[Rfam]
RNA: Bacterial small subunit ribosomal RNA, nucleotides 873 to 1449
Organism: uncultured bacterium
RNA sequence: UGACGGGGGAGCGCACAACCGGUGGAGCAUGUGGUUUAAUUCGAUACAAAGCGAAAAACCUUACCCGGGAUUGACAUGUACCUGCACGGCUAUGGAAACAUAGCUUUCUUCGAGAGUGGUACACAGGUGAUGCAUGGCUGUCGUCAGCUCGUGUCGUGAGACGUCCACUUAAGUGUGGUAACGAGCGCAACCCUUGUUCUGUGUUAUACGUGUCACAGAAGACUGCCCUAGUUUUACUAGGGAGGAAGGAGAGGACGAUGUCAAGUCAGCAUGUCCCUUACACCUGGGGCUACACACAUCCUACAAUGGAGCCGACAACAGGUAGCGACGAGGUAACUCUGAGCUAAUCCUCUAAACGGCCCCUCAGUUCGGAUUGAGGGCUGCAAUUUGCCCUCAUGAAGCCGGAAUCGGUAGUAAUCGCAAAUCAGCAGGUUGCGGUGAAUACGUUCUCGCUCCUUGUACACACUGCCCGUCAAGCCAGCAAAGUCAGCAACGCCCGAAGCGGGUGACCGUAACUAGUUUACUAGAGCGGCCCUUCUACGGCGAGGUUGGCGAUGAGGACUAAGUCGUAACAAGG
Dot-bracket structure: (((((.(((((((.((..((((((.((.(((((((....((((........))))........((((((.......((.(((.....(((((((....))))))).(((...)))..))).))..((.((((..((((((.((...(((((((((....)))..((((......))))..)))))).....((((.(((((((...(....).)))))))..((.(((((.......))))).)).....))))....)).).)))...)))))))).....))))))...)).))))).)).)...((.((((.....(((..((...(((....)))...))....))).....)))).))......(....(((((((........)))))))....).....))))).....(((((((.........)))))))......))...)))))))))).))..(.(..((...((.(..((..((((((..((((....(.(((.(.((((..((((....)))).)))))))).)...))))..))))))..))..).))....))...)..).